[Rfam]
The record is a 107-nucleotide RNA sequence from Brassica rapa, which matches "Plant small nucleolar RNA R71" in Rfam. Rfam links the family to the GO terms RNA processing and nucleolus. It is annotated as a C/D-box small nucleolar RNA. The literature on the family includes a 2003 paper in Trends Plant Sci by Brown et al., "Plant snoRNAs: functional evolution and new modes of gene expression". Rfam 15.1 lists 278,378 matches to the family in 216 species.
RNA sequence: AAACCAUGAUGAGGGCAUUGAGACCAAUAGCCCUUGAACCUCUCCCAUGCUUCACUGAAGCUCUCUAGAUCUUUCUGUUGAAACCCAGAGAUUUCGUUCCUGAUUUU
Numbered sequence: 001a002a003a004c005c006a007u008g009a010u011g012a013g014g015g016c017a018u019u020g021a022g023a024c025c026a027a028u029a030g031c032c033c034u035u036g037a038a039c040c041u042c043u044c045c046c047a048u049g050c051u052u053c054a055c056u057g058a059a060g061c062u063c064u065c066u067a068g069a070u071c072u073u074u075c076u077g078u079u080g081a082a083a084c085c086c087a088g089a090g091a092u093u094u095c096g097u098u099c100c101u102g103a104u105u106u107u
Base pairs, nucleotide, nucleotide: 001107003105005102006101057074058073060071